Record summary
The family of this 87-nucleotide sequence from Aegilops tauschii is "MIR1120/MIR1122 microRNA precursor family". The match comes from Rfam's covariance-model search (91 bits). On this family, see Yao et al., Genome Biol 2007: "Cloning and characterization of microRNAs from wheat (Triticum aestivum L.)". Lineage of the source: Eukaryota > Pooideae > Triticodae > Triticeae > Aegilops tauschii. Rfam 15.1 lists 44,765 matches to the family in 8 species.
[Rfam]
Nucleotides: 087
Base pairs, nucleotide, nucleotide: 003085004084005083007081008080009079010078011077013075014074015073016072017071019069020068021067022066023065024064025063027061028060029059030058031057032056033055034054035053036052037051038050039049040048041047
Number, partner (000 for none) and nucleotide at each position: 001000c002000u003085a004084c005083u006000c007081c008080c009079u010078c011077c012000g013075u014074a015073a016072a017071c018000u019069a020068a021067u022066a023065u024064a025063a026000a027061a028060g029059c030058g031057u032056u033055u034054a035053g036052a037051a038050u039049a040048u041047u042000a043000a044000a045000g046000u047041a048040g049039u050038a051037u052036u053035c054034u055033a056032a057031a058030c059029g060028c061027u062000c063025u064024u065023a066022u067021a068020u069019u070000a071017g072016u073015u074014u075013a076000c077011g078010g079009a080008g081007g082000g083005a084004g085003u086000a087000a